[Rfam]
RNA sequence: AGGAAACGAGGAUGGGGCUGGGGGGACGGGCCUCCCCAAGUCCUCCUCAGGCAAAUAGGCUCA
Numbered sequence: 001a002g003g004a005a006a007c008g009a010g011g012a013u014g015g016g017g018c019u020g021g022g023g024g025g026a027c028g029g030g031c032c033u034c035c036c037c038a039a040g041u042c043c044u045c046c047u048c049a050g051g052c053a054a055a056u057a058g059g060c061u062c063a
Stems, first nucleotide, its partner, number of pairs: 014044006021037004028062005
Dot-bracket structure: .............((((((.((((...[[[[[.)))).)))))).............]]]]].